Nucleotides: 125
Stems, first nucleotide, its partner, number of pairs: 018107002021104007029096002032093003036089006045080002
Number, partner (000 for none) and nucleotide at each position: 001000g002000g003000g004000u005000g006000u007000g008000a009000a010000a011000c012000a013000g014000a015000a016000c017000a018107a019106g020000a021104c022103a023102g024101g025100g026099a027098a028000u029096a030095g031000a032093c033092a034091g035000a036089g037088c038087a039086u040085g041084g042000a043000u044000g045080g046079a047000g048000c049000c050000u051000u052000c053000a054000a055000c056000a057000g058000a059000a060000u061000a062000u063000g064000g065000a066000a067000g068000c069000c070000u071000g072000u073000u074000g075000u076000g077000g078000c079046u080045c081000u082000a083000c084041u085040c086039a087038u088037g089036c090000a091034c092033u093032g094000c095030c096029u097000c098027u099026u100025c101024c102023c103022u104021g105000g106019c107018u108000c109000a110000c111000c112000c113000u114000g115000u116000c117000u118000u119000c120000c121000u122000c123000u124000u125000c